[Rfam]
Nucleotides: 090
Base pairs, nucleotide, nucleotide: 003025004024005023006022007021008020027053028052029051030050031049032048061081062080063079064078065077066076067075068074
Number, partner (000 for none) and nucleotide at each position: 001000u002000c003025c004024c005023u006022g007021c008020u009000u010000u011000u012000c013000c014000u015000c016000c017000c018000u019000g020008a021007g022006c023005a024004g025003g026000u027053g028052c029051c030050u031049u032048a033000c034000c035000g036000u037000g038000u039000u040000g041000a042000c043000a044000g045000c046000g047000u048032u049031a050030a051029g052028g053027c054000u055000u056000u057000g058000c059000a060000g061081c062080c063079c064078c065077a066076g067075c068074c069000g070000c071000c072000c073000u074068g075067g076066c077065u078064g079063g080062g081061g082000c083000u084000c085000u086000u087000u088000u089000u090000u
This 90-nucleotide RNA from Sphaerotilus hippei belongs to the Rfam family "Burkholderia RNA 7 (anti-hemB)". The source organism's lineage runs through Bacteria, Pseudomonadati, Pseudomonadota, Burkholderiales and Sphaerotilus. Its family is annotated with bacterial biofilm matrix and protein binding in the Gene Ontology. About the family: This RNA motif was identified by computational search in b-proteobacteria Burkholderia. Co-purified with Hfq, expression confirmed by Northern blot. The base pairs follow the family's consensus structure, which is taken from published work.